[Rfam]
RNA: ASpks TB sRNA
Organism: Streptosporangium subroseum
RNA sequence: CUUCACCGACCCCAGCCAGAGCGGUUCGCCGGAGCGAUCACGCCCGUACGUGGCCAGCAGCGCCUGCGCCUC
Numbered sequence: 001c002u003u004c005a006c007c008g009a010c011c012c013c014a015g016c017c018a019g020a021g022c023g024g025u026u027c028g029c030c031g032g033a034g035c036g037a038u039c040a041c042g043c044c045c046g047u048a049c050g051u052g053g054c055c056a057g058c059a060g061c062g063c064c065u066g067c068g069c070c071u072c
Stems, first nucleotide, its partner, number of pairs: 014026004027068003035062002042055001044053003